[Rfam]
RNA sequence: AGCAGAGUAGGUAUAUGUGCGUUAAGUGCCGGCUGGACAGGGAGUUGUCAGCUGGACGAAAGAGGAUUCCCAAAGGGAAACUGUCUGCGGUACAUAUGCCGCAUCCCGCUGCA
Numbered sequence: 001a002g003c004a005g006a007g008u009a010g011g012u013a014u015a016u017g018u019g020c021g022u023u024a025a026g027u028g029c030c031g032g033c034u035g036g037a038c039a040g041g042g043a044g045u046u047g048u049c050a051g052c053u054g055g056a057c058g059a060a061a062g063a064g065g066a067u068u069c070c071c072a073a074a075g076g077g078a079a080a081c082u083g084u085c086u087g088c089g090g091u092a093c094a095u096a097u098g099c100c101g102c103a104u105c106c107c108g109c110u111g112c113a
Stems, first nucleotide, its partner, number of pairs: 002112004010100010020089003026057002029055008040106003044102001061086003
A member of the RNA family "THF (Tetrahydrofolate) riboswitch aptamer" from Enterocloster bolteae, 113 nucleotides long. NCBI's taxonomy places the organism under Bacteria, Bacillota, Clostridia, Enterocloster, Enterocloster bolteae. It scores 84 bits against the family's covariance model. For this family Rfam cites "A disconnect between high-affinity binding and efficient regulation by antifolates and purines in the tetrahydrofolate riboswitch" (Trausch and Batey, Chem Biol, 2014).